[Rfam]
The family of this 77-nucleotide sequence from Oncorhynchus tshawytscha is "Small nucleolar RNA SNORD35". The family is grouped with related families in Rfam's "SNORD35 clan". Rfam links the family to the GO terms RNA processing and nucleolus.
RNA sequence: UGCAAACAGUUUUCUCAUGAUGGUCUUCCAAGCCUUCUGGAUAUGACAAAGCCUUAUGGCAUUACUGAUGCAAUGAC
Numbered sequence: 001u002g003c004a005a006a007c008a009g010u011u012u013u014c015u016c017a018u019g020a021u022g023g024u025c026u027u028c029c030a031a032g033c034c035u036u037c038u039g040g041a042u043a044u045g046a047c048a049a050a051g052c053c054u055u056a057u058g059g060c061a062u063u064a065c066u067g068a069u070g071c072a073a074u075g076a077c
Base pairs, nucleotide, nucleotide: 001072002071003070004069

The family has 8 seed sequences and 1,842 matches in Rfam 15.1.
The base pairs follow the family's consensus structure, which was predicted with PFOLD.
Rfam classes the family as a C/D-box small nucleolar RNA.
The match comes from Rfam's covariance-model search (37 bits).
Rfam describes the family as follows. U35 is a C/D box snoRNA located in intron 6 of ribosomal protein L13A and intron 3 of ribosomal protein S11 in humans and at homologous positions in mouse and chicken ribosomal protein genes.